Overview: The family of this 83-nucleotide RNA sequence from Flaviflexus ciconiae is "ZMP/ZTP riboswitch aptamer (pfl RNA motif)".
RNA sequence: CGUCUCGGCUGCAACUGGCGAGAAAGAUGGAUGACCAUCGGGGAGUAGCCGCGACUACCGCGUCGCACGCCUGGGCAUAGCGG
Numbered sequence: 001c002g003u004c005u006c007g008g009c010u011g012c013a014a015c016u017g018g019c020g021a022g023a024a025a026g027a028u029g030g031a032u033g034a035c036c037a038u039c040g041g042g043g044a045g046u047a048g049c050c051g052c053g054a055c056u057a058c059c060g061c062g063u064c065g066c067a068c069g070c071c072u073g074g075g076c077a078u079a080g081c082g083g
Stems, first nucleotide, its partner, number of pairs: 003054002006051007015042002017071004027038004060078001062076003